U8 small nucleolar RNA: a 136-nucleotide RNA sequence from Carlito syrichta. Taxonomically the source falls in Carlito (Eukaryota, Opisthokonta, Bilateria, Craniata). Rfam links the family to the GO terms RNA processing and nucleolus. The family's consensus secondary structure is taken from published work.
[Rfam]
RNA sequence: ACCUCAGGAGGGAUCAUCCUUACCUGUUCCUCCUCCUGGAGGACAGGUUAGUACCUGAUGUUUGGCGUUCACAAGACACGUGAUCAGUGUAUCUGCGUAAUCAGGACUUGGAACACCCCGACUGUUCCUGUCUGAU
Numbered sequence: 001a002c003c004u005c006a007g008g009a010g011g012g013a014u015c016a017u018c019c020u021u022a023c024c025u026g027u028u029c030c031u032c033c034u035c036c037u038g039g040a041g042g043a044c045a046g047g048u049u050a051g052u053a054c055c056u057g058a059u060g061u062u063u064g065g066c067g068u069u070c071a072c073a074a075g076a077c078a079c080g081u082g083a084u085c086a087g088u089g090u091a092u093c094u095g096c097g098u099a100a101u102c103a104g105g106a107c108u109u110g111g112a113a114c115a116c117c118c119c120g121a122c123u124g125u126u127c128c129u130g131u132c133u134g135a136u
Stems, first nucleotide, its partner, number of pairs: 024046003028043006075093002078090003081086001097125003101121002104118002